Shown here is a 493-nucleotide part of an RNA from Sorghum bicolor, a member of the family "Eukaryotic large subunit ribosomal RNA".
The organism belongs to Sorghum, within Eukaryota.
Clan: LSU clan.
The sequence is in the family's curated seed alignment.
RNA sequence: CCCUCCGAAGUUUCCCUCAGGAUAGCUGGAGCCCAUUACGAGUUCUAUCGGGUAAAGCCAAUGAUUAGAGGCAUCGGGGGCGCAACGCCCUCGACCUAUUCUCAAACUUUAAAUAGGUAGGACGGCACGGCUGCUCCGGUGAGCCGUGCCAUGGAAUCGGGAGCUCCAAGUGGGCCAUUUUUGGUAAGCAGAACUGGCGAUGCGGGAUGAACCGGAAGCCGGGUUACGGUGCCAAACUGCGCGCUAACCUAGAACCCACAAAGGGUGUUGGUCGAUUAAGACAGCAGGACGGUGGUCAUGGAAGUCGAAAUCCGCUAAGGAGUGUGUAACAACUCACCUGCCGAAUCAACUAGCCCCGAAAAUGGAUGGCGCUGAAGCGCGCGACCCACACCCGGCCAUCUGGGCGAACGCCAUGCCCCGAUGAGUAGGAGGGCGCGGCGGCCGCUGCAAAACCCGGGGCGCGAGCCUGGGCGGAGCGGCCGUCGGUGCAGAU
Number, nucleotide and partner (000 for none) at each position: 001c433002c432003c431004u430005c429006c428007g000008a000009a000010g000011u024012u000013u022014c021015c020016c000017u000018c000019a000020g015021g014022a013023u000024a011025g000026c000027u168028g167029g166030a165031g164032c163033c000034c000035a000036u000037u000038a000039c000040g000041a000042g000043u122044u121045c120046u119047a118048u117049c116050g000051g000052g000053u000054a000055a110056a108057g107058c000059c000060a000061a000062u104063g103064a102065u000066u000067a099068g000069a097070g096071g095072c000073a000074u094075c093076g092077g091078g090079g089080g000081c087082g000083c000084a000085a000086c000087g081088c000089c079090c078091u077092c076093g075094a074095c071096c070097u069098a000099u067100u000101c000102u064103c063104a062105a000106a000107c057108u056109u000110u055111a000112a000113a000114u000115a000116g049117g048118u047119a046120g045121g044122a043123c000124g150125g149126c148127a147128c146129g145130g144131c143132u142133g000134c000135u000136c000137c000138g000139g000140u000141g000142a132143g131144c130145c129146g128147u127148g126149c125150c124151a000152u000153g000154g000155a000156a000157u000158c000159g000160g000161g000162a000163g032164c031165u030166c029167c028168a027169a000170g000171u000172g000173g000174g198175c197176c196177a195178u000179u193180u192181u191182u190183g189184g000185u000186a000187a000188g000189c183190a182191g181192a180193a179194c000195u177196g176197g175198c174199g000200a000201u000202g000203c214204g213205g212206g000207a000208u000209g000210a000211a000212c205213c204214g203215g000216a000217a000218g396219c395220c394221g393222g392223g000224u390225u000226a000227c000228g386229g385230u384231g000232c000233c000234a000235a000236a000237c383238u000239g382240c000241g000242c379243g378244c377245u000246a000247a000248c000249c000250u000251a000252g000253a000254a000255c000256c000257c000258a000259c000260a000261a000262a000263g357264g356265g355266u000267g354268u353269u352270g351271g350272u349273c000274g347275a346276u345277u000278a000279a000280g000281a000282c000283a000284g341285c340286a339287g338288g337289a000290c314291g313292g312293u000294g000295g000296u308297c307298a000299u000300g000301g000302a000303a000304g000305u000306c000307g297308a296309a000310a000311u000312c292313c291314g290315c319316u000317a000318a000319g315320g335321a000322g000323u000324g333325u332326g000327u000328a000329a000330c000331a000332a325333c324334u000335c320336a000337c288338c287339u286340g285341c284342c000343g000344a000345a276346u275347c274348a000349a272350c271351u270352a269353g268354c267355c265356c264357c263358g000359a000360a000361a000362a000363u000364g000365g000366a000367u000368g000369g000370c000371g000372c000373u000374g000375a000376a000377g244378c243379g242380c000381g000382c239383g237384a230385c229386c228387c000388a000389c000390a224391c000392c222393c221394g220395g219396c218397c423398a422399u421400c420401u000402g418403g417404g416405c415406g000407a000408a000409c000410g000411c000412c000413a000414u000415g405416c404417c403418c402419c000420g400421a399422u398423g397424a000425g000426u000427a000428g006429g005430a004431g003432g002433g001434c488435g000436c485437g484438g483439c482440g481441g480442c479443c478444g477445c476446u000447g000448c000449a000450a000451a000452a000453c471454c000455c000456g000457g000458g467459g466460c465461g000462c000463g000464a000465g460466c459467c458468u000469g000470g000471g453472c000473g000474g000475a000476g445477c444478g443479g442480c441481c440482g439483u438484c437485g436486g000487u000488g434489c000490a000491g000492a000493u000